This 138-nucleotide RNA from Rattus norvegicus belongs to the Rfam family "Small nucleolar RNA SNORA55". By type it is an H/ACA-box small nucleolar RNA. The base pairs follow the family's consensus structure, which was predicted with PFOLD. The match comes from Rfam's covariance-model search (98 bits). Rfam links the family to the GO terms RNA processing and nucleolus. The family has 29 seed sequences and 1,476 matches in Rfam 15.1.

RNA sequence: GCAGUUUGAAAACCACACUCCCAGGCCUGCUUGCUUGGUGCUGGUCUGGGGACAGGCAGUGCUAUAGUAGAGCAGAGGAAAUCCAGACGGGUCGUUUCCAUCUGUCCUGGGGGCUAUCUCUACAACUCUGCCACACUU
Numbered sequence: 001g002c003a004g005u006u007u008g009a010a011a012a013c014c015a016c017a018c019u020c021c022c023a024g025g026c027c028u029g030c031u032u033g034c035u036u037g038g039u040g041c042u043g044g045u046c047u048g049g050g051g052a053c054a055g056g057c058a059g060u061g062c063u064a065u066a067g068u069a070g071a072g073c074a075g076a077g078g079a080a081a082u083c084c085a086g087a088c089g090g091g092u093c094g095u096u097u098c099c100a101u102c103u104g105u106c107c108u109g110g111g112g113g114c115u116a117u118c119u120c121u122a123c124a125a126c127u128c129u130g131c132c133a134c135a136c137u138u
Stems, first nucleotide, its partner, number of pairs: 001062003005058001019051006026044002072131006085119003089115002092112001098110003